[Rfam]
The family of this 102-nucleotide RNA from Parageobacillus caldoxylosilyticus is "Purine riboswitch aptamer". The organism belongs to Parageobacillus caldoxylosilyticus, within Bacteria. Its family is annotated with purine nucleobase biosynthetic process in the Gene Ontology.
RNA sequence: ACUUCAUUAUGCUGACUCACUCAUAUAAUUGCAGGAAUAUGGCCUGCAAGUCUCUACCGGCCGACCGUAAAUCGGCCGACUAUGGGUGGCAAUGUCAGAACG
Numbered sequence: 001a002c003u004u005c006a007u008u009a010u011g012c013u014g015a016c017u018c019a020c021u022c023a024u025a026u027a028a029u030u031g032c033a034g035g036a037a038u039a040u041g042g043c044c045u046g047c048a049a050g051u052c053u054c055u056a057c058c059g060g061c062c063g064a065c066c067g068u069a070a071a072u073c074g075g076c077c078g079a080c081u082a083u084g085g086g087u088g089g090c091a092a093u094g095u096c097a098g099a100a101c102g
Stems, first nucleotide, its partner, number of pairs: 018088008029049007058078007